The family of this 72-nucleotide RNA from Rodentolepis nana is "HDV ribozyme from F. prausnitzii". Gene Ontology term of the family: catalytic activity. A search with the family's covariance model found it, with a score of 45 bits. The organism belongs to Rodentolepis, within Eukaryota. The base pairs follow the family's consensus structure, which is taken from published work.

RNA sequence: GGGGUGCGUGAUAGACUCAGCUCCACGUGGUGCACCCUGGGCAACGUAUACUCAUACGGCAAAAAAGUUUAU
Number, nucleotide and partner (000 for none) at each position: 001g038002g037003g036004g035005u034006g033007c032008g000009u000010g000011a000012u000013a000014g000015a000016c000017u000018c000019a031020g000021c029022u000023c000024c000025a000026c000027g000028u000029g021030g000031u019032g007033c006034a005035c004036c003037c002038u001039g000040g000041g000042c000043a000044a000045c058046g057047u056048a055049u054050a000051c000052u000053c000054a049055u048056a047057c046058g045059g000060c000061a000062a000063a000064a000065a000066a000067g000068u000069u000070u000071a000072u000